[Rfam]
Shown here is a 528-nucleotide part of an RNA from Caldisphaera lagunensis, a member of the family "Archaeal small subunit ribosomal RNA". The source organism's lineage runs through Archaea, Thermoproteati, Thermoproteota, Acidilobaceae and Caldisphaera lagunensis.
RNA sequence: ACUCCGGUUGAUCCUGCCGGACCUGACUGCUAUUGGGGUAAGGCUAAGCCAUGGGAGCCGGACGCCCUAUCGCUAUAGGGCGUGACGCACGGCUGAGUAACACGUGGCUAACCUACCCUCGGGACUGGGAUAACUCCGGGAAACUGGAGCUAAACCCGGAUAGGUGAGGAGUCCUGGAAUGGUUCUUCACCGAAAUAGACCUUAGGGGGUUACCGUCUAAGGUCUGCCCGAGGAUGGGGCCACGGCCCAUCAUGGUAGUUGGUGGGGUAAUGGCCCACCAAGCCUACGACGGGUAGGGGCCCUGGGAGGGGGAGCCCCCAGAUGGACCCUGAGACAAGGGUCCAGGCCCUACGGGGCGCACCAGGCGCGAAACCUCUGCAAUGCGGGCAACCGUGACAGGGUUACCCCAAGUGCUCCCGUUAAGGGAGCUUUUCCUCGCUGUAAGGAGGCGAGGGAAUAAGCGGGGGGCAAGACUGGUGUCAGCCGCCGCGGUAAUACCAGCCCCGCGAGUGGUCAGGACGAUUACUG
Numbered sequence: 001a002c003u004c005c006g007g008u009u010g011a012u013c014c015u016g017c018c019g020g021a022c023c024u025g026a027c028u029g030c031u032a033u034u035g036g037g038g039u040a041a042g043g044c045u046a047a048g049c050c051a052u053g054g055g056a057g058c059c060g061g062a063c064g065c066c067c068u069a070u071c072g073c074u075a076u077a078g079g080g081c082g083u084g085a086c087g088c089a090c091g092g093c094u095g096a097g098u099a100a101c102a103c104g105u106g107g108c109u110a111a112c113c114u115a116c117c118c119u120c121g122g123g124a125c126u127g128g129g130a131u132a133a134c135u136c137c138g139g140g141a142a143a144c145u146g147g148a149g150c151u152a153a154a155c156c157c158g159g160a161u162a163g164g165u166g167a168g169g170a171g172u173c174c175u176g177g178a179a180u181g182g183u184u185c186u187u188c189a190c191c192g193a194a195a196u197a198g199a200c201c202u203u204a205g206g207g208g209g210u211u212a213c214c215g216u217c218u219a220a221g222g223u224c225u226g227c228c229c230g231a232g233g234a235u236g237g238g239g240c241c242a243c244g245g246c247c248c249a250u251c252a253u254g255g256u257a258g259u260u261g262g263u264g265g266g267g268u269a270a271u272g273g274c275c276c277a278c279c280a281a282g283c284c285u286a287c288g289a290c291g292g293g294u295a296g297g298g299g300c301c302c303u304g305g306g307a308g309g310g311g312g313a314g315c316c317c318c319c320a321g322a323u324g325g326a327c328c329c330u331g332a333g334a335c336a337a338g339g340g341u342c343c344a345g346g347c348c349c350u351a352c353g354g355g356g357c358g359c360a361c362c363a364g365g366c367g368c369g370a371a372a373c374c375u376c377u378g379c380a381a382u383g384c385g386g387g388c389a390a391c392c393g394u395g396a397c398a399g400g401g402u403u404a405c406c407c408c409a410a411g412u413g414c415u416c417c418c419g420u421u422a423a424g425g426g427a428g429c430u431u432u433u434c435c436u437c438g439c440u441g442u443a444a445g446g447a448g449g450c451g452a453g454g455g456a457a458u459a460a461g462c463g464g465g466g467g468g469c470a471a472g473a474c475u476g477g478u479g480u481c482a483g484c485c486g487c488c489g490c491g492g493u494a495a496u497a498c499c500a501g502c503c504c505c506g507c508g509a510g511u512g513g514u515c516a517g518g519a520c521g522a523u524u525a526c527u528g
Stems, first nucleotide, its partner, number of pairs: 004020005022518010033410009042368001048366003052363003057086001059084001062083009093321003103244007112237002117233007125159004134149006164190008173182002197225010246293003254284003259281008296318004300311004323344006346357004374400001376399003382395005413429006434454007461507006474501004483490002
The literature on the family includes a 2001 paper in Science by Yusupov et al., "Crystal structure of the ribosome at 5.5 A resolution".